[Rfam]
RNA: Purine riboswitch aptamer
Organism: Bacillus sp. AFS041924
RNA sequence: UAAAAUAUAUUAAUAUUUUCUCAUAUAAACUUGAAAAUAAGGUUCAAGAGUUUCUACCUAGCGCCCGUAAAUUGCUAGACUAUGAGGAAGAGCUUCGGAUUU
Numbered sequence: 001u002a003a004a005a006u007a008u009a010u011u012a013a014u015a016u017u018u019u020c021u022c023a024u025a026u027a028a029a030c031u032u033g034a035a036a037a038u039a040a041g042g043u044u045c046a047a048g049a050g051u052u053u054c055u056a057c058c059u060a061g062c063g064c065c066c067g068u069a070a071a072u073u074g075c076u077a078g079a080c081u082a083u084g085a086g087g088a089a090g091a092g093c094u095u096c097g098g099a100u101u102u
Stems, first nucleotide, its partner, number of pairs: 018088008030048006058078006